[Rfam]
RNA sequence: AAGGAAAUCGGCAAACCAGACGAAAGUCUGGGACGCAAAGCUACAGGGCCUGUAAAAUGGCAGCCAGCUGCAUAAA
Dot-bracket structure: ..(.......((...((((((....))))))..[))..((((...(((((........))).]))))))...)...
Numbered sequence: 001a002a003g004g005a006a007a008u009c010g011g012c013a014a015a016c017c018a019g020a021c022g023a024a025a026g027u028c029u030g031g032g033a034c035g036c037a038a039a040g041c042u043a044c045a046g047g048g049c050c051u052g053u054a055a056a057a058u059g060g061c062a063g064c065c066a067g068c069u070g071c072a073u074a075a076a
Stems, first nucleotide, its partner, number of pairs: 003073001011036002016031006034063001039069004046065002048061003
The family of this 76-nucleotide RNA sequence from Mediterraneibacter sp. gm002 is "c-di-GMP-I-GGC riboswitch aptamer". The match comes from Rfam's covariance-model search (61 bits).